A member of the RNA family "Burkholderia sRNA Bp1_Cand684_SIPHT" from Paraburkholderia steynii, 109 nucleotides long. A reference for the family is Khoo et al. (2012), "Computational discovery and RT-PCR validation of novel Burkholderia conserved and Burkholderia pseudomallei unique sRNAs", BMC Genomics. The base pairs follow the family's consensus structure, which was predicted with RNAalifold. A search with the family's covariance model found it, with a score of 44 bits. Lineage of the source: Bacteria > Pseudomonadota > Betaproteobacteria > Burkholderiaceae > Paraburkholderia.
RNA sequence: AGAAAAGUAGGUGCCGCCCCGCACAGGGGCGACGCGUGAAGCACGCUAACGAAUCGCGGAUGCCAGCGCACAGACUAGAACAACCAAACCGCCGCACCACGAGGCAUAA
Numbered sequence: 001a002g003a004a005a006a007g008u009a010g011g012u013g014c015c016g017c018c019c020c021g022c023a024c025a026g027g028g029g030c031g032a033c034g035c036g037u038g039a040a041g042c043a044c045g046c047u048a049a050c051g052a053a054u055c056g057c058g059g060a061u062g063c064c065a066g067c068g069c070a071c072a073g074a075c076u077a078g079a080a081c082a083a084c085c086a087a088a089c090c091g092c093c094g095c096a097c098c099a100c101g102a103g104g105c106a107u108a109a
Stems, first nucleotide, its partner, number of pairs: 011071004015031006093101002